[Rfam]
RNA sequence: UUUAAAUAAAGCGAUGAGUUUCUGUGUCAAAUUUUAAUCAUCCGUCUUAUUUAAAAUAUUUUUAUAAUUAAUAUUUUUUAUUAUAUGUUAAAAUAUAAAUAGUACUUUAUGCGUGAUUCAUAUUUUUUAUUUUUUAAAUAAGUCAGACAAUUAAAAUUGGACGAAGAAACUGAUAGCCGCAUCUAAA
Numbered sequence: 001u002u003u004a005a006a007u008a009a010a011g012c013g014a015u016g017a018g019u020u021u022c023u024g025u026g027u028c029a030a031a032u033u034u035u036a037a038u039c040a041u042c043c044g045u046c047u048u049a050u051u052u053a054a055a056a057u058a059u060u061u062u063u064a065u066a067a068u069u070a071a072u073a074u075u076u077u078u079u080a081u082u083a084u085a086u087g088u089u090a091a092a093a094u095a096u097a098a099a100u101a102g103u104a105c106u107u108u109a110u111g112c113g114u115g116a117u118u119c120a121u122a123u124u125u126u127u128u129a130u131u132u133u134u135u136a137a138a139u140a141a142g143u144c145a146g147a148c149a150a151u152u153a154a155a156a157u158u159g160g161a162c163g164a165a166g167a168a169a170c171u172g173a174u175a176g177c178c179g180c181a182u183c184u185a186a187a
Stems, first nucleotide, its partner, number of pairs: 027161002030158009041147002044144001046142005

This 187-nucleotide sequence from Oryza glumipatula belongs to the Rfam family "MIR812 microRNA precursor family". It scores 113 bits against the family's covariance model.